[Rfam]
RNA: Small nucleolar RNA SNORD11B
Organism: Macaca mulatta
RNA sequence: UGAUGGCAAUGAUGAUUUACACUUACUGUUGUUCACCUGAUAACAUAAAUAUGAGGGUGUUCAGUCACUACCUCAUCUGAUGCCAUCA
Numbered sequence: 001u002g003a004u005g006g007c008a009a010u011g012a013u014g015a016u017u018u019a020c021a022c023u024u025a026c027u028g029u030u031g032u033u034c035a036c037c038u039g040a041u042a043a044c045a046u047a048a049a050u051a052u053g054a055g056g057g058u059g060u061u062c063a064g065u066c067a068c069u070a071c072c073u074c075a076u077c078u079g080a081u082g083c084c085a086u087c088a
Base pairs, nucleotide, nucleotide: 002087003086004085005084006083007082